[Rfam]
RNA sequence: GCAUGGAUUUGGAUUUAUGGCAGGCUCAUCUCCCUGGGCCUCUCAUAGUGUCCCAUGCUAGAGCAAAUUGUGGCUCCUAACCAUUGCCCAGCCUCCGUGCUGGCACUGAAAUGGGUCACACUGUG
Numbered sequence: 001g002c003a004u005g006g007a008u009u010u011g012g013a014u015u016u017a018u019g020g021c022a023g024g025c026u027c028a029u030c031u032c033c034c035u036g037g038g039c040c041u042c043u044c045a046u047a048g049u050g051u052c053c054c055a056u057g058c059u060a061g062a063g064c065a066a067a068u069u070g071u072g073g074c075u076c077c078u079a080a081c082c083a084u085u086g087c088c089c090a091g092c093c094u095c096c097g098u099g100c101u102g103g104c105a106c107u108g109a110a111a112u113g114g115g116u117c118a119c120a121c122u123g124u125g
Stems, first nucleotide, its partner, number of pairs: 001058004005053004015048006022041003025037002071118006082108002087103002089099001
About this RNA:
This 125-nucleotide RNA belongs to the Rfam family "Small nucleolar RNA SNORA42/SNORA80 family". The members of this family belong to the H/ACA class of snoRNAs that guide the sites of modification of uridines to pseudouridines. Human ACA42 (SNORA42) was cloned from HeLa cells by immunoprecipitation with anti-GAR1 antibody. A reference for the family is Schattner et al. (2006), "A computational screen for mammalian pseudouridylation guide H/ACA RNAs", RNA. The family's RNA type in Rfam is H/ACA-box small nucleolar RNA. Gene Ontology terms of the family: RNA processing and nucleolus.